The family of this 182-nucleotide RNA from Enterococcus hirae is "Listeria sRNA rli28". NCBI's taxonomy places the organism under Bacteria, Bacillota, Bacilli, Lactobacillales, Enterococcus hirae. Pairs were carried over by alignment from the consensus structure, which was predicted with RNAalifold.
RNA sequence: AACCUUGUUUUAUAAUAUGUAUCGUAGAAAAGUGAAAAGAUGGUGGCAAUCCAUUCUAGGAGGUGAUGCUUAUGAAUGUAAGUAUCAAAUUUAAGGAAAGGAGAGCCUGAAUUGUCAGUGUUUGAGGCGCUACAGCUAAUGAUUGCUUUUGCGAUGUUAGUUUUAGCUAUCAAAGAUGACAA
Numbered sequence: 001a002a003c004c005u006u007g008u009u010u011u012a013u014a015a016u017a018u019g020u021a022u023c024g025u026a027g028a029a030a031a032g033u034g035a036a037a038a039g040a041u042g043g044u045g046g047c048a049a050u051c052c053a054u055u056c057u058a059g060g061a062g063g064u065g066a067u068g069c070u071u072a073u074g075a076a077u078g079u080a081a082g083u084a085u086c087a088a089a090u091u092u093a094a095g096g097a098a099a100g101g102a103g104a105g106c107c108u109g110a111a112u113u114g115u116c117a118g119u120g121u122u123u124g125a126g127g128c129g130c131u132a133c134a135g136c137u138a139a140u141g142a143u144u145g146c147u148u149u150u151g152c153g154a155u156g157u158u159a160g161u162u163u164u165a166g167c168u169a170u171c172a173a174a175g176a177u178g179a180c181a182a
Base pairs, nucleotide, nucleotide: 043155044154046152047151062091063090064087065086066085068083069082118130119129120128121127160177161176162175163174166171
The match comes from Rfam's covariance-model search (102 bits).